Annotation: The record is a 47-nucleotide sequence from Amycolatopsis methanolica, which matches "Guanidine-II riboswitch aptamer (mini-ykkC)" in Rfam. Taxonomically the source falls in Amycolatopsis methanolica (Bacteria, Bacillati, Actinomycetes, Pseudonocardiaceae). About the family: Simpler in structure and has fewer highly conserved nucleotide positions than the ykkC-yxkD leader. The base pairs follow the family's consensus structure, which is taken from published work. It scores 36 bits against the family's covariance model.
RNA sequence: GGCAGGGGACGACCCCCGCCGGGACCCGGGGCUUCGGGACGACCCGC
Numbered sequence: 001g002g003c004a005g006g007g008g009a010c011g012a013c014c015c016c017c018g019c020c021g022g023g024a025c026c027c028g029g030g031g032c033u034u035c036g037g038g039a040c041g042a043c044c045c046g047c
Base pairs, nucleotide, nucleotide: 001020002019003018005016006015007014008013035046036045037044038043